[Rfam]
RNA sequence: AUAGGAAGCUUCUAGGGUUCCGGUUUUGGUCUGCUGCCGCAGUCAAAAUGUGCUGGUCCGAGAGAAGCAGCUGGUUAUAAAUGGGGACUCGUUCAACUUGACCCCAUUUUGAUCGGUCACACGGCGGGAUAAAAGCCCGGGAGGC
Numbered sequence: 001a002u003a004g005g006a007a008g009c010u011u012c013u014a015g016g017g018u019u020c021c022g023g024u025u026u027u028g029g030u031c032u033g034c035u036g037c038c039g040c041a042g043u044c045a046a047a048a049u050g051u052g053c054u055g056g057u058c059c060g061a062g063a064g065a066a067g068c069a070g071c072u073g074g075u076u077a078u079a080a081a082u083g084g085g086g087a088c089u090c091g092u093u094c095a096a097c098u099u100g101a102c103c104c105c106a107u108u109u110u111g112a113u114c115g116g117u118c119a120c121a122c123g124g125c126g127g128g129a130u131a132a133a134a135g136c137c138c139g140g141g142a143g144g145c
Stems, first nucleotide, its partner, number of pairs: 008068005015059002020056002022053001023049008070118001072116001074114001076112001120140001122143001126138003